[Rfam]
Nucleotides: 155
Base pairs, nucleotide, nucleotide: 002061003060004059005058006057007056008055009053013049014048015047016046017045020042021041022040024035025034086147087146088145089144090143099136100135104132106130108128110126112124
Number, partner (000 for none) and nucleotide at each position: 001000g002061g003060u004059c005058c006057g007056a008055u009053g010000c011000c012000a013049c014048g015047u016046c017045g018000a019000c020042g021041g022040u023000a024035g025034c026000a027000a028000a029000a030000a031000u032000a033000a034025g035024c036000a037000a038000u039000g040022a041021c042020c043000g044000a045017c046016g047015a048014u049013g050000c051000u052000a053009u054000g055008a056007u057006u058005g059004g060003a061002c062000c063000a064000a065000u066000a067000u068000c069000a070000a071000g072000u073000u074000u075000u076000u077000a078000u079000u080000a081000a082000c083000a084000u085000u086147u087146c088145g089144c090143a091000u092000u093000u094000u095000g096000a097000u098000a099136g100135g101000a102000a103000u104132c105000u106130g107000u108128g109000u110126a111000u112124g113000g114000a115000c116000a117000u118000u119000c120000u121000a122000u123000u124112c125000c126110u127000u128108c129000a130106c131000c132104g133000a134000g135100c136099c137000g138000u139000u140000u141000c142000g143090u144089g145088c146087g147086a148000u149000u150000a151000c152000a153000u154000u155000c